[Rfam]
RNA sequence: AUAGAGGUAGCUGAAAAUCUAUAAAAGAGUAAGCA
Numbered sequence: 001a002u003a004g005a006g007g008u009a010g011c012u013g014a015a016a017a018u019c020u021a022u023a024a025a026a027g028a029g030u031a032a033g034c035a
Stems, first nucleotide, its partner, number of pairs: 002021004010034003